[Rfam]
RNA sequence: CGAAUGGAGCUGCUAUACAGACCAAGAAUUCUCAAACCGGCCAAAAAUAAGGAACCCGUUGUAAUGAUCUUGGAUCUACGUUUGCGAAAACUUUUUAUCCUGGCGGUUCAUAACUUUAGAGUUCAUUUAUAUAAUUUUAUGUACUGUGUGAACAGUCAAAUUUUAUGUAAAAAUAAAUCUAUCGUGAUGUGACCAGAGACAAAGGUUGAAAAUGUCUACAAUCUAAUAGUUUGUUAGACCUAAAAAUUAUACAAAAGGCAGACGGAAGGGCUUUAUUCGACCCGUCUUGAAACACGG
Numbered sequence: 001c002g003a004a005u006g007g008a009g010c011u012g013c014u015a016u017a018c019a020g021a022c023c024a025a026g027a028a029u030u031c032u033c034a035a036a037c038c039g040g041c042c043a044a045a046a047a048u049a050a051g052g053a054a055c056c057c058g059u060u061g062u063a064a065u066g067a068u069c070u071u072g073g074a075u076c077u078a079c080g081u082u083u084g085c086g087a088a089a090a091c092u093u094u095u096u097a098u099c100c101u102g103g104c105g106g107u108u109c110a111u112a113a114c115u116u117u118a119g120a121g122u123u124c125a126u127u128u129a130u131a132u133a134a135u136u137u138u139a140u141g142u143a144c145u146g147u148g149u150g151a152a153c154a155g156u157c158a159a160a161u162u163u164u165a166u167g168u169a170a171a172a173a174u175a176a177a178u179c180u181a182u183c184g185u186g187a188u189g190u191g192a193c194c195a196g197a198g199a200c201a202a203a204g205g206u207u208g209a210a211a212a213u214g215u216c217u218a219c220a221a222u223c224u225a226a227u228a229g230u231u232u233g234u235u236a237g238a239c240c241u242a243a244a245a246a247u248u249a250u251a252c253a254a255a256a257g258g259c260a261g262a263c264g265g266a267a268g269g270g271c272u273u274u275a276u277u278c279g280a281c282c283c284g285u286c287u288u289g290a291a292a293c294a295c296g297g
Stems, first nucleotide, its partner, number of pairs: 001279011019070003023066002076261002079258001081256002282297004
Dot-bracket structure: (((((((((((.......(((.((........................................)).))).....((.(.((............................................................................................................................................................................)).).)).......)))))))))))..((((........))))